[Rfam]
Rfam assigns this 70-nucleotide RNA from Etheostoma spectabile to the family "miR-430 microRNA precursor family".
A reference for the family is Giraldez et al. (2005), "MicroRNAs regulate brain morphogenesis in zebrafish", Science.
The family's consensus secondary structure was predicted with RNAalifold.
Rfam links the family to the GO terms miRNA-mediated post-transcriptional gene silencing and RISC complex.
A search with the family's covariance model found it, with a score of 58 bits.
The family has 32 seed sequences and 24,817 matches in Rfam 15.1.

RNA sequence: CUUAUUACUCUAACCUUAGCAUUGACUUGACUGUUGAAUUCAGUAAGUGCUACUUGUUGGGGUAGUUGAA
Numbered sequence: 001c002u003u004a005u006u007a008c009u010c011u012a013a014c015c016u017u018a019g020c021a022u023u024g025a026c027u028u029g030a031c032u033g034u035u036g037a038a039u040u041c042a043g044u045a046a047g048u049g050c051u052a053c054u055u056g057u058u059g060g061g062g063u064a065g066u067u068g069a070a
Stems, first nucleotide, its partner, number of pairs: 004066008013057002018051006025044003